A member of the RNA family "Bacterial large subunit ribosomal RNA" from Staphylococcus saccharolyticus, 587 nucleotides of a longer RNA.
RNA sequence: CCCGCGACAGGACGGAAAGACCCCGUGGAGCUUUACUGUAGCCUGAUAUUGAAAUUCGGCACAGCUUGUACAGGAUAGGUAGGAGCCAUUGAAACGUGAGCGCUAGCUUAUGUGGAGGCGUUGGUGGGAUACUACCCUAGCUGUGUUGGCUUUCUAACCCGCACCACUUAUCGUGGUGGGAGACAGUGUCAGGUGGGCAGUUUGACUGGGGCGGUCGCCUCCUAAAAGGUAACGGAGGCGCUCAAAGGUUCCCUCAGAAUGGUUGGAAAUCAUUCACAGAGUGUAAAGGCAUAAGGGAGCUUGACUGCGAGACUUACAAGUCGAGCAGGGUCGAAAGACGGACUUAGUGAUCCGGUGGUUCCAUAUGGAAGGGCCAUCGCUCAACGGAUAAAAGCUACCCCGGGGAUAACAGGCUUAUCUCCCCCAAGAGUUCACAUCGACGGGGAGGUUUGGCACCUCGAUGUCGGCUCAUCGCAUCCUGGGGCUGUAGUCGGUCCCAAGGGUUGGGCUGUUCGCCCAUUAAAGCGGUACGCGAGCUGGGUUCAGAACGUCGUGAGACAGUUCGGUCCCUAUCCGUCGUGGGCGUA
Numbered sequence: 001c002c003c004g005c006g007a008c009a010g011g012a013c014g015g016a017a018a019g020a021c022c023c024c025g026u027g028g029a030g031c032u033u034u035a036c037u038g039u040a041g042c043c044u045g046a047u048a049u050u051g052a053a054a055u056u057c058g059g060c061a062c063a064g065c066u067u068g069u070a071c072a073g074g075a076u077a078g079g080u081a082g083g084a085g086c087c088a089u090u091g092a093a094a095c096g097u098g099a100g101c102g103c104u105a106g107c108u109u110a111u112g113u114g115g116a117g118g119c120g121u122u123g124g125u126g127g128g129a130u131a132c133u134a135c136c137c138u139a140g141c142u143g144u145g146u147u148g149g150c151u152u153u154c155u156a157a158c159c160c161g162c163a164c165c166a167c168u169u170a171u172c173g174u175g176g177u178g179g180g181a182g183a184c185a186g187u188g189u190c191a192g193g194u195g196g197g198c199a200g201u202u203u204g205a206c207u208g209g210g211g212c213g214g215u216c217g218c219c220u221c222c223u224a225a226a227a228g229g230u231a232a233c234g235g236a237g238g239c240g241c242u243c244a245a246a247g248g249u250u251c252c253c254u255c256a257g258a259a260u261g262g263u264u265g266g267a268a269a270u271c272a273u274u275c276a277c278a279g280a281g282u283g284u285a286a287a288g289g290c291a292u293a294a295g296g297g298a299g300c301u302u303g304a305c306u307g308c309g310a311g312a313c314u315u316a317c318a319a320g321u322c323g324a325g326c327a328g329g330g331u332c333g334a335a336a337g338a339c340g341g342a343c344u345u346a347g348u349g350a351u352c353c354g355g356u357g358g359u360u361c362c363a364u365a366u367g368g369a370a371g372g373g374c375c376a377u378c379g380c381u382c383a384a385c386g387g388a389u390a391a392a393a394g395c396u397a398c399c400c401c402g403g404g405g406a407u408a409a410c411a412g413g414c415u416u417a418u419c420u421c422c423c424c425c426a427a428g429a430g431u432u433c434a435c436a437u438c439g440a441c442g443g444g445g446a447g448g449u450u451u452g453g454c455a456c457c458u459c460g461a462u463g464u465c466g467g468c469u470c471a472u473c474g475c476a477u478c479c480u481g482g483g484g485c486u487g488u489a490g491u492c493g494g495u496c497c498c499a500a501g502g503g504u505u506g507g508g509c510u511g512u513u514c515g516c517c518c519a520u521u522a523a524a525g526c527g528g529u530a531c532g533c534g535a536g537c538u539g540g541g542u543u544c545a546g547a548a549c550g551u552c553g554u555g556a557g558a559c560a561g562u563u564c565g566g567u568c569c570c571u572a573u574c575c576g577u578c579g580u581g582g583g584c585g586u587a
Stems, first nucleotide, its partner, number of pairs: 001583008010575003014570002022404004027400002029396005035201004042193007051154004056149011068137001078136005085119003094113008159180002162178006204216004217239006240385001242342002248300006254280002257275006281290002305328004311322003330339003353379007361372002413454003417451001418448007428438002465540001466538004470532001471529005478503002481498006505519005546564004550559003

NCBI's taxonomy places the organism under Bacteria, Bacillati, Caryophanales, Staphylococcaceae, Staphylococcus. The base pairs follow the family's consensus structure, which is taken from published work.